A member of the RNA family "7SK RNA" from Calyptomena viridis, 308 nucleotides long. It is annotated as a non-coding RNA gene. 7SK was discovered as an abundant small nuclear RNA in the mid-70s but a possible function has only recently been suggested. The source organism's lineage runs through Eukaryota, Sarcopterygii, Dinosauria, Neoaves and Calyptomena. On this family, see Blencowe, Curr Biol 2002: "Transcription: surprising role for an elusive small nuclear RNA".
RNA sequence: GGGUGAUCUGGCUGUGACAUCUGUCACCCCAUUGAUUGCCAGGGUUGAUUUGGCUGAUCUGGCUGGCUAGAUAGGUGUCCCCUCAAUGCUCCGUGUAUAUCCCUCCCAAAGCUGCGUGCUCGGUCAAAGAGGAUGACCUCCCUGCUAGAGAUGGUACCAUUCAUUGGUCAAGGGUAUGUGGUAGCUGUGCUCCCCUGCGAGAACCUCCAAACAAGCUCAAGGUCUUGAAAAUCUAUGUGCAGAAUCUUCUCUGUCCUGCCCUUGACAGUUAUUUUUAUUUCUGUGUACUUGGUAUACAGAACUGCCAA
Numbered sequence: 001g002g003g004u005g006a007u008c009u010g011g012c013u014g015u016g017a018c019a020u021c022u023g024u025c026a027c028c029c030c031a032u033u034g035a036u037u038g039c040c041a042g043g044g045u046u047g048a049u050u051u052g053g054c055u056g057a058u059c060u061g062g063c064u065g066g067c068u069a070g071a072u073a074g075g076u077g078u079c080c081c082c083u084c085a086a087u088g089c090u091c092c093g094u095g096u097a098u099a100u101c102c103c104u105c106c107c108a109a110a111g112c113u114g115c116g117u118g119c120u121c122g123g124u125c126a127a128a129g130a131g132g133a134u135g136a137c138c139u140c141c142c143u144g145c146u147a148g149a150g151a152u153g154g155u156a157c158c159a160u161u162c163a164u165u166g167g168u169c170a171a172g173g174g175u176a177u178g179u180g181g182u183a184g185c186u187g188u189g190c191u192c193c194c195c196u197g198c199g200a201g202a203a204c205c206u207c208c209a210a211a212c213a214a215g216c217u218c219a220a221g222g223u224c225u226u227g228a229a230a231a232u233c234u235a236u237g238u239g240c241a242g243a244a245u246c247u248u249c250u251c252u253g254u255c256c257u258g259c260c261c262u263u264g265a266c267a268g269u270u271a272u273u274u275u276u277a278u279u280u281c282u283g284u285g286u287a288c289u290u291g292g293u294a295u296a297c298a299g300a301a302c303u304g305c306c307a308a
Stems, first nucleotide, its partner, number of pairs: 001092003005084002010082002016079010027066002029062003034059004038054003100154002103150003106123002109120001111119002125144002131141003184246001186244001190242002193239001195237001206229001208227001273308002277303001279301003282296005